Shown here is a 75-nucleotide sequence, a member of the family "RAGATH-18 RNA". The family's RNA type in Rfam is small RNA. Pairs were carried over by alignment from the consensus structure, which is taken from published work.
RNA sequence: CCUAUGAAGUGUACAAGAACUUGUGAGUAGUAUCUGGGUUUAUUCAGUACAAAAGCAUACACGACGAAGUAGGAA
Numbered sequence: 001c002c003u004a005u006g007a008a009g010u011g012u013a014c015a016a017g018a019a020c021u022u023g024u025g026a027g028u029a030g031u032a033u034c035u036g037g038g039u040u041u042a043u044u045c046a047g048u049a050c051a052a053a054a055g056c057a058u059a060c061a062c063g064a065c066g067a068a069g070u071a072g073g074a075a
Stems, first nucleotide, its partner, number of pairs: 001073005009062005022057003030050003035046002